[Rfam]
RNA sequence: AACCUCCCUCUGUGGGGCAAUCAAUCUGGGGGCCCCUUGAUCUAUUGCCCCACAGAGGGAGGCU
Numbered sequence: 001a002a003c004c005u006c007c008c009u010c011u012g013u014g015g016g017g018c019a020a021u022c023a024a025u026c027u028g029g030g031g032g033c034c035c036c037u038u039g040a041u042c043u044a045u046u047g048c049c050c051c052a053c054a055g056a057g058g059g060a061g062g063c064u
Base pairs, nucleotide, nucleotide: 001064003062004061005060006059007058008057009056010055011054012053013052014051015050016049017048018047019046020045021044024041025040026039028037029036030035
RNA: mir-9242 microRNA precursor family